[Rfam]
RNA sequence: UUUUACAUCUUUGCAAGCAAUUUUUGCGAGAUGUGAAAACGAUUUGAGAACUUUUUGUAGCUUUUGGUCAUAAGUGGGGGAUCGUUUAUGACUAAAUUCGUUACAACUCAAUAAGCGAUUGUGAAUCUUCGCAAUCAUUUUUUUAAACCCAAGAAGAAGUAGUGCAAAUAAUAUGA
Numbered sequence: 001u002u003u004u005a006c007a008u009c010u011u012u013g014c015a016a017g018c019a020a021u022u023u024u025u026g027c028g029a030g031a032u033g034u035g036a037a038a039a040c041g042a043u044u045u046g047a048g049a050a051c052u053u054u055u056u057g058u059a060g061c062u063u064u065u066g067g068u069c070a071u072a073a074g075u076g077g078g079g080g081a082u083c084g085u086u087u088a089u090g091a092c093u094a095a096a097u098u099c100g101u102u103a104c105a106a107c108u109c110a111a112u113a114a115g116c117g118a119u120u121g122u123g124a125a126u127c128u129u130c131g132c133a134a135u136c137a138u139u140u141u142u143u144u145a146a147a148c149c150c151a152a153g154a155a156g157a158a159g160u161a162g163u164g165c166a167a168a169u170a171a172u173a174u175g176a
Stems, first nucleotide, its partner, number of pairs: 002037009012028006044111005056105006063096015115165002117136008140159005
The family of this 176-nucleotide RNA sequence from Pseudohaemophilus paraphrohaemolyticus is "nqrA-II ncRNA motif". It is one of the family's seed sequences.